[Rfam]
RNA sequence: ACCGAACAGACACACAUGGAUCUGUGUCCAGCGAUCCUGUUCAUGGAAGCUCGUCUUCUGUGUUUCGGUUGAUUGCUGGCCAGUUCGACGACUUAAGGAGCCACCAUUCUCAUGGGUGGUCUUUUAUUUCCGGUCGACAGAUCUUAGAUUAAAUGUUGGUGCUGGGCGUCACUCUGACUUUGAGCUCCCUCGUUCUUGACUUGGUGAGCUCGGUUGGAAAUCCCGGUUGCUGACGGCGUCAUAUUCCUACUCUCUUUACCGAUCUGGCCGUCGGCCGAUGAGGUUAGGGAAUAACCAUGACUAGCCAACAUUC
Numbered sequence: 001a002c003c004g005a006a007c008a009g010a011c012a013c014a015c016a017u018g019g020a021u022c023u024g025u026g027u028c029c030a031g032c033g034a035u036c037c038u039g040u041u042c043a044u045g046g047a048a049g050c051u052c053g054u055c056u057u058c059u060g061u062g063u064u065u066c067g068g069u070u071g072a073u074u075g076c077u078g079g080c081c082a083g084u085u086c087g088a089c090g091a092c093u094u095a096a097g098g099a100g101c102c103a104c105c106a107u108u109c110u111c112a113u114g115g116g117u118g119g120u121c122u123u124u125u126a127u128u129u130c131c132g133g134u135c136g137a138c139a140g141a142u143c144u145u146a147g148a149u150u151a152a153a154u155g156u157u158g159g160u161g162c163u164g165g166g167c168g169u170c171a172c173u174c175u176g177a178c179u180u181u182g183a184g185c186u187c188c189c190u191c192g193u194u195c196u197u198g199a200c201u202u203g204g205u206g207a208g209c210u211c212g213g214u215u216g217g218a219a220a221u222c223c224c225g226g227u228u229g230c231u232g233a234c235g236g237c238g239u240c241a242u243a244u245u246c247c248u249a250c251u252c253u254c255u256u257u258a259c260c261g262a263u264c265u266g267g268c269c270g271u272c273g274g275c276c277g278a279u280g281a282g283g284u285u286a287g288g289g290a291a292u293a294a295c296c297a298u299g300a301c302u303a304g305c306c307a308a309c310a311u312u313c
Base pairs, nucleotide, nucleotide: 018144019143020142021141022140023139024138025137026081028079029078030077031076033074034073035072036071037068038067039066042062043061045058046057047056049054089136090135091134092133093132096124097123098122100120101119102118155230156229161227162226163225164224165223166222176215177214178213179212182211183210184209185208186207187206188204189203235306236305237304238301239300240299241298242297251290252289253288254287255286258284259283260282266276267275268274269273
RNA: A. fumigatus sRNA Afu_309